[Rfam]
RNA: terC RNA
Organism: Sphingorhabdus wooponensis
RNA sequence: UUUGCGGGCCGGGCCCCUCUGGCGUUGGUGCAUAGCACCACGUGAUGUCGGACCGCAUCG
Numbered sequence: 001u002u003u004g005c006g007g008g009c010c011g012g013g014c015c016c017c018u019c020u021g022g023c024g025u026u027g028g029u030g031c032a033u034a035g036c037a038c039c040a041c042g043u044g045a046u047g048u049c050g051g052a053c054c055g056c057a058u059c060g
Base pairs, nucleotide, nucleotide: 006054007053009051010050011049012048022043023042024041025040027039028038029037030036